About this RNA:
Rfam assigns this 193-nucleotide RNA from Crypturellus soui to the family "Connexin-43 internal ribosome entry site (IRES)". The base pairs follow the family's consensus structure, which is taken from published work. A search with the family's covariance model found it, with a score of 106 bits. Rfam describes the family as follows. This family represents the connexin-43 internal ribosome entry site (IRES) which allows cap independent translation during conditions such as heat shock and stress. Rfam links the family to the GO term ribosome binding.
[Rfam]
RNA sequence: ACUUUUUACGAGGUAUCAGCACUUUUCUUUCAUUAGUGGGGAAGGAAGGAUGAAAAAUACAAAGCAGCAGUAGACUUUUAAAGUUUAAAUAGACAGGUCUGAGUGCCUGAACAGGCUCUUCCAUUUUACUUUAACCCUCCAAAGAAGUUUUCUUAUCCUGUUUCACUGCUGAGCAGCAAGGGUAAGUGACGAG
Numbered sequence: 001a002c003u004u005u006u007u008a009c010g011a012g013g014u015a016u017c018a019g020c021a022c023u024u025u026u027c028u029u030u031c032a033u034u035a036g037u038g039g040g041g042a043a044g045g046a047a048g049g050a051u052g053a054a055a056a057a058u059a060c061a062a063a064g065c066a067g068c069a070g071u072a073g074a075c076u077u078u079u080a081a082a083g084u085u086u087a088a089a090u091a092g093a094c095a096g097g098u099c100u101g102a103g104u105g106c107c108u109g110a111a112c113a114g115g116c117u118c119u120u121c122c123a124u125u126u127u128a129c130u131u132u133a134a135c136c137c138u139c140c141a142a143a144g145a146a147g148u149u150u151u152c153u154u155a156u157c158c159u160g161u162u163u164c165a166c167u168g169c170u171g172a173g174c175a176g177c178a179a180g181g182g183u184a185a186g187u188g189a190c191g192a193g
Base pairs, nucleotide, nucleotide: 003019004018007015008014009013029146030145031144033142034141036139038137039136040135041132042131043130044129049125050124051123052122056120057119072100073099074098075097076096077095101116104113105112157193160190161189162188164182166180167178168177169176170175
Dot-bracket structure: ..((..(((...)))..)).........(((.((.(.(((((((....((((...((..............((((((.................))))))(..((......))..)..)).))))...))))..))).).)).)))..........(..(((.(.(((((....)))).).).....)))..)